[Rfam]
This 133-nucleotide RNA sequence from Phyllostomus discolor belongs to the Rfam family "U11 spliceosomal RNA". By type it is a spliceosomal small nuclear RNA. Pairs were carried over by alignment from the consensus structure, which is taken from published work.
RNA sequence: UCAAAGGGUUUCUGUCGUGAGUGGCGCACAUGGGCAGCUUGACGGCUCUCUGUGUGGUGGAGUCGACAUUGGGAGAUUUCGGAAGCAUGACUUGGUAUCUGGGCGCUUGGUGAUUGUGGGUGCUGGCACCUGG
Numbered sequence: 001u002c003a004a005a006g007g008g009u010u011u012c013u014g015u016c017g018u019g020a021g022u023g024g025c026g027c028a029c030a031u032g033g034g035c036a037g038c039u040u041g042a043c044g045g046c047u048c049u050c051u052g053u054g055u056g057g058u059g060g061a062g063u064c065g066a067c068a069u070u071g072g073g074a075g076a077u078u079u080c081g082g083a084a085g086c087a088u089g090a091c092u093u094g095g096u097a098u099c100u101g102g103g104c105g106c107u108u109g110g111u112g113a114u115u116g117u118g119g120g121u122g123c124u125g126g127c128a129c130c131u132g133g
Stems, first nucleotide, its partner, number of pairs: 008086005013026005027056008036047003058081007101131003105127003109123001113121003